SAM riboswitch aptamer (S box leader): a 128-nucleotide RNA sequence from Gracilimonas mengyeensis.

Nucleotides: 128
Stems, first nucleotide, its partner, number of pairs: 003126006013043005021032003026092004044084004049080002052075002088120001093117010
Number, partner (000 for none) and nucleotide at each position: 001000u002000u003126c004125u005124c006123a007122u008121u009000g010000a011000g012000a013043a014042a015041g016040g017039u018000g019000g020000a021032g022031g023030g024000a025000u026092c027091a028090g029089g030023u031022c032021c033000u034000g035000u036000g037000a038000a039017g040016c041015c042014u043013u044084g045083g046082c047081a048000a049080c050079c051000g052075u053074c054000g055000c056000c057000c058000g059000a060000u061000a062000g063000c064000a065000a066000u067000a068000u069000u070000g071000g072000g073000a074053g075052a076000a077000a078000a079050g080049g081047u082046g083045c084044u085000a086000c087000a088120u089029c090028c091027u092026g093117u094116c095115u096114g097113u098112u099111c100110u101109g102108c103000a104000u105000u106000u107000g108102g109101c110100g111099g112098a113097a114096u115095g116094g117093a118000a119000a120088a121008g122007a123006u124005g125004a126003g127000u128000u